[Rfam]
RNA sequence: AAACCGUGAUGGGGACAACGUCUAAGUAUUUCUUUAAAACGCUCCCACACAUCGAAAAGAGAUUCCCCGUUUUUUGAGUAAAUUGGUAAAGCUUUCCCCUAAGUUG
Dot-bracket structure: ..((.(..................................................((.(.........).))..........................)..))..
RNA: Plant small nucleolar RNA R71
Organism: Medicago truncatula